[Rfam]
RNA sequence: AGCGGCCACCCUUACCACAUGCGGAAGAACGAUUGCUGGAAUGGGGAGACUU
Numbered sequence: 001a002g003c004g005g006c007c008a009c010c011c012u013u014a015c016c017a018c019a020u021g022c023g024g025a026a027g028a029a030c031g032a033u034u035g036c037u038g039g040a041a042u043g044g045g046g047a048g049a050c051u052u
Stems, first nucleotide, its partner, number of pairs: 004051002009045003015039003021036004
Norovirus cis-acting replication element (CRE): a 52-nucleotide RNA from Norovirus norwalkense.
Taxonomically the source falls in Norovirus isolates (Viruses, Pisuviricota, Pisoniviricetes, Norwalk virus).
On this family, see Victoria et al., BMC Res Notes 2009: "Phylogenetic prediction of cis-acting elements: a cre-like sequence in Norovirus genome?".
Pairs were carried over by alignment from the consensus structure, which is taken from published work.